[Rfam]
A member of the RNA family "FMN riboswitch aptamer (RFN element)" from Sagittula marina, 139 nucleotides long. A search with the family's covariance model found it, with a score of 105 bits. Pairs were carried over by alignment from the consensus structure, which is taken from published work.

RNA sequence: GGCUGUUCUCAGGGCGGGGUGAAAUUCCCCACCGGCGGUGAUAGCCCGCGAGCGCUUCGAUCCACACAGGAUCGGGGGUCAAGCAGAUCCGGUGGAACUCCGGGGCCGACGGUUAAAGUCCGGAUGGAAGAGACGCGAC
Numbered sequence: 001g002g003c004u005g006u007u008c009u010c011a012g013g014g015c016g017g018g019g020u021g022a023a024a025u026u027c028c029c030c031a032c033c034g035g036c037g038g039u040g041a042u043a044g045c046c047c048g049c050g051a052g053c054g055c056u057u058c059g060a061u062c063c064a065c066a067c068a069g070g071a072u073c074g075g076g077g078g079u080c081a082a083g084c085a086g087a088u089c090c091g092g093u094g095g096a097a098c099u100c101c102g103g104g105g106c107c108g109a110c111g112g113u114u115a116a117a118g119u120c121c122g123g124a125u126g127g128a129a130g131a132g133a134c135g136c137g138a139c
Stems, first nucleotide, its partner, number of pairs: 003137001007133004017029003031119002033108002035049004044106002052084002088104005110122003